RNA sequence: ACUUCUUGAACUUGGAAGAGCUGUGAAUGAAUGUUGAAGUGCAGAAUGUUCAGAUUCUACAGAAACAAGUGAUGCAUCAGUGUCUCCAGAUGAGAAAU
Numbered sequence: 001a002c003u004u005c006u007u008g009a010a011c012u013u014g015g016a017a018g019a020g021c022u023g024u025g026a027a028u029g030a031a032u033g034u035u036g037a038a039g040u041g042c043a044g045a046a047u048g049u050u051c052a053g054a055u056u057c058u059a060c061a062g063a064a065a066c067a068a069g070u071g072a073u074g075c076a077u078c079a080g081u082g083u084c085u086c087c088a089g090a091u092g093a094g095a096a097a098u
Stems, first nucleotide, its partner, number of pairs: 001098001003096004
This 98-nucleotide sequence from Caenorhabditis angaria belongs to the Rfam family "Small nucleolar RNA sn2991".
On this family, see Higa et al., Biochem Biophys Res Commun 2002: "Location of 2(')-O-methyl nucleotides in 26S rRNA and methylation guide snoRNAs in Caenorhabditis elegans".
The family's consensus secondary structure was predicted with WAR.
The match comes from Rfam's covariance-model search (97 bits).
Rfam links the family to the GO terms nucleolus and RNA processing.
It is annotated as a C/D-box small nucleolar RNA.